Shown here is a 77-nucleotide RNA sequence from Miscanthus lutarioriparius, a member of the family "Small nucleolar RNA Z155".
RNA sequence: UGUUGAUACGAUGAAAAGCCUUUGACAGAAACUUCAAUGUUGACCAAAAAAAUCAGACUACAAUUAUCUGAUCAACU
Numbered sequence: 001u002g003u004u005g006a007u008a009c010g011a012u013g014a015a016a017a018g019c020c021u022u023u024g025a026c027a028g029a030a031a032c033u034u035c036a037a038u039g040u041u042g043a044c045c046a047a048a049a050a051a052a053u054c055a056g057a058c059u060a061c062a063a064u065u066a067u068c069u070g071a072u073c074a075a076c077u
Stems, first nucleotide, its partner, number of pairs: 002076005
Dot-bracket structure: .(((((.................................................................))))).
Lineage of the source: Eukaryota > Viridiplantae > Poaceae > Panicoideae > Miscanthus.